RNA sequence: UGAGUGUUAUGAUGAUGGAAAGGAAGAAGUCUUUCUUUCCGAGUCUAGCUCUUUCAUCCCUAGGCAGAAGUCUAGGGAUG
Number, nucleotide and partner (000 for none) at each position: 001u000002g051003a050004g049005u048006g000007u000008u000009a000010u000011g045012a044013u043014g000015a000016u000017g040018g039019a038020a037021a036022g035023g034024a033025a032026g000027a000028a000029g000030u000031c000032u025033u024034u023035c022036u021037u020038u019039c018040c017041g000042a000043g013044u012045c011046u000047a000048g005049c004050u003051c002052u000053u000054u000055c080056a079057u078058c077059c076060c075061u074062a073063g072064g000065c000066a000067g000068a000069a000070g000071u000072c063073u062074a061075g060076g059077g058078a057079u056080g055
RNA: L17 ribosomal protein downstream element
Organism: Aerococcus sp. Group 1